The family of this 112-nucleotide sequence from Halobacillus yeomjeoni is "SAM riboswitch aptamer (S box leader)".
Lineage of the source: Bacteria > Bacilli > Caryophanales > Bacillaceae > Halobacillus.
[Rfam]
Nucleotides: 112
Base pairs, nucleotide, nucleotide: 001112002111003110004109005108006107007106008105013042014041015040016039017038021031022030023029025081026080027079028078043073044072045071046070048069049068051064052063053062077104082101083100084099085098086097087096
Number, partner (000 for none) and nucleotide at each position: 001112u002111u003110c004109u005108u006107a007106u008105c009000a010000a011000g012000a013042g014041a015040a016039g017038c018000u019000g020000a021031g022030g023029g024000a025081c026080u027079g028078g029023c030022c031021c032000g033000u034000a035000g036000a037000a038017g039016c040015u041014u042013c043073a044072g045071c046070a047000a048069c049068c050000a051064c052063u053062g054000g055000u056000u057000c058000c059000a060000a061000c062053c063052a064051g065000a066000a067000a068049g069048g070046u071045g072044c073043u074000a075000a076000c077104u078028c079027c080026a081025g082101c083100a084099a085098g086097c087096c088000g089000u090000a091000u092000a093000c094000c095000a096087g097086g098085c099084u100083u101082g102000a103000a104077a105008g106007a107006u108005a109004a110003g111002a112001a